RNA sequence: GAGCUGUGAAGAUUUUAAAGGAAUCUGAGAUUCCAUUUGAAGUCAUAAGAUCCAACUCUGAGCUCGCUAAAAAA
Numbered sequence: 001g002a003g004c005u006g007u008g009a010a011g012a013u014u015u016u017a018a019a020g021g022a023a024u025c026u027g028a029g030a031u032u033c034c035a036u037u038u039g040a041a042g043u044c045a046u047a048a049g050a051u052c053c054a055a056c057u058c059u060g061a062g063c064u065c066g067c068u069a070a071a072a073a074a
Stems, first nucleotide, its partner, number of pairs: 001065004
Dot-bracket structure: ((((.........................................................)))).........